A member of the RNA family "Plastid-psbA-4 3UTR RNA" from Solanum macrocarpon, 58 nucleotides long. A reference for the family is Richter et al. (2023), "Retrograde signaling in plants: A critical review focusing on the GUN pathway and beyond", Plant Commun. Taxonomically the source falls in Solanum (Eukaryota, Viridiplantae, asterids, lamiids). Plastid psbA-4 is a non-coding RNA (ncRNA) present in plastids. It was identified in inverted repeat sequences in the 3 prime untranslate region (3UTR) of photosystem II quinone-binding protein (psbA). The family's consensus secondary structure was predicted with LocARNA.
RNA sequence: AAAAGAAAGGAGCAAUAGCACCCUCUUGAUAAAACAAGAAAAUAGUUAUUGCUCCUUU
Number, nucleotide and partner (000 for none) at each position: 001a000002a000003a000004a000005g000006a058007a057008a056009g055010g054011a053012g052013c051014a050015a049016u048017a047018g000019c000020a000021c000022c000023c000024u039025c038026u037027u036028g035029a000030u000031a000032a000033a000034a000035c028036a027037a026038g025039a024040a000041a000042a000043u000044a000045g000046u000047u017048a016049u015050u014051g013052c012053u011054c010055c009056u008057u007058u006